Archaeal small subunit ribosomal RNA: a 359-nucleotide part of an RNA from Methanospirillum lacunae. The family is grouped with related families in Rfam's "SSU clan". The family's consensus secondary structure is taken from published work. It scores 1541 bits against the family's covariance model.

[Rfam]
RNA sequence: GGCUUAAAGGGUCCGUAGCUGGAUCUGUGUGUCCCUUGAGAAAUCCAUCGGCUCAACUGAUGGGCGUUCAGGGGAAACUGCAGUUCUAGGGACCGGGAGAGGUGAGAGGUACUGCCGGGGUAGGAGUGAAAUCCUGUAAUCCCGGUGGGACGACCUAUGGCGAAGGCAUCUCACCAGAACGGCUCCGACAGUGAGGGACGAAAGCUGGGGGAGCAAACCGGAUUAGAUACCCGGGUAGUCCCAGCUGUAAACUAUGCGCAUUAGGUGUGUCAGUGACCACGUGUCACUGAGGUGCCGAAGGGAAACCGUGAAAUGCGCCGCCUGGGGAGUACGGUCGCAAGGCUGAAACUUAAAGGAAU
Numbered sequence: 001g002g003c004u005u006a007a008a009g010g011g012u013c014c015g016u017a018g019c020u021g022g023a024u025c026u027g028u029g030u031g032u033c034c035c036u037u038g039a040g041a042a043a044u045c046c047a048u049c050g051g052c053u054c055a056a057c058u059g060a061u062g063g064g065c066g067u068u069c070a071g072g073g074g075a076a077a078c079u080g081c082a083g084u085u086c087u088a089g090g091g092a093c094c095g096g097g098a099g100a101g102g103u104g105a106g107a108g109g110u111a112c113u114g115c116c117g118g119g120g121u122a123g124g125a126g127u128g129a130a131a132u133c134c135u136g137u138a139a140u141c142c143c144g145g146u147g148g149g150a151c152g153a154c155c156u157a158u159g160g161c162g163a164a165g166g167c168a169u170c171u172c173a174c175c176a177g178a179a180c181g182g183c184u185c186c187g188a189c190a191g192u193g194a195g196g197g198a199c200g201a202a203a204g205c206u207g208g209g210g211g212a213g214c215a216a217a218c219c220g221g222a223u224u225a226g227a228u229a230c231c232c233g234g235g236u237a238g239u240c241c242c243a244g245c246u247g248u249a250a251a252c253u254a255u256g257c258g259c260a261u262u263a264g265g266u267g268u269g270u271c272a273g274u275g276a277c278c279a280c281g282u283g284u285c286a287c288u289g290a291g292g293u294g295c296c297g298a299a300g301g302g303a304a305a306c307c308g309u310g311a312a313a314u315g316c317g318c319c320g321c322c323u324g325g326g327g328a329g330u331a332c333g334g335u336c337g338c339a340a341g342g343c344u345g346a347a348a349c350u351u352a353a354a355g356g357a358a359u
Stems, first nucleotide, its partner, number of pairs: 001322003009319001011199004016193001018192003022086002025083004031078001032075009045063007090186003093182003101175007109151001112148008123134003160167002204245006213239002218234004256318006264296005270290008300307002324351003333344004